[Rfam]
Record summary
Shown here is an 88-nucleotide RNA sequence from Sedimentibacter saalensis, a member of the family "c-di-GMP-I riboswitch aptamer". The organism belongs to Sedimentibacter, within Bacteria. GEMM was predicted in a large-scale screen for bacterial structured RNA regulatory elements. The match comes from Rfam's covariance-model search (76 bits).
RNA sequence: AUUUAAUAUUGGCAAAACUAUUGAAAAAUAGUGACGCAAAGCUAUGAAGUCUAAAGUAUGAAACUACUAUGAUAGUUCAGCUGCAAAU
Numbered sequence: 001a002u003u004u005a006a007u008a009u010u011g012g013c014a015a016a017a018c019u020a021u022u023g024a025a026a027a028a029u030a031g032u033g034a035c036g037c038a039a040a041g042c043u044a045u046g047a048a049g050u051c052u053a054a055a056g057u058a059u060g061a062a063a064c065u066a067c068u069a070u071g072a073u074a075g076u077u078c079a080g081c082u083g084c085a086a087a088u
Base pairs, nucleotide, nucleotide: 012037013036017032018031019030020029021028022027040082041081042080043079046078047077048076049073050072051071056067057066058065
Overview
Pairs were carried over by alignment from the consensus structure, which is taken from published work.